Rfam assigns this 68-nucleotide RNA from Ooceraea biroi to the family "HDV ribozyme from F. prausnitzii". Rfam links the family to the GO term catalytic activity. The family's consensus secondary structure is taken from published work.

RNA sequence: AACUCUAAAACGUCCACCUCCACGUGGUUAGAGUUGGGCAACGUUAAACAUUAACGGCUAACGGACGA
Numbered sequence: 001a002a003c004u005c006u007a008a009a010a011c012g013u014c015c016a017c018c019u020c021c022a023c024g025u026g027g028u029u030a031g032a033g034u035u036g037g038g039c040a041a042c043g044u045u046a047a048a049c050a051u052u053a054a055c056g057g058c059u060a061a062c063g064g065a066c067g068a
Base pairs, nucleotide, nucleotide: 001035002034003033004032005031006030007029016028017027018026042056043055044054045053046052
The organism belongs to Ooceraea, within Eukaryota.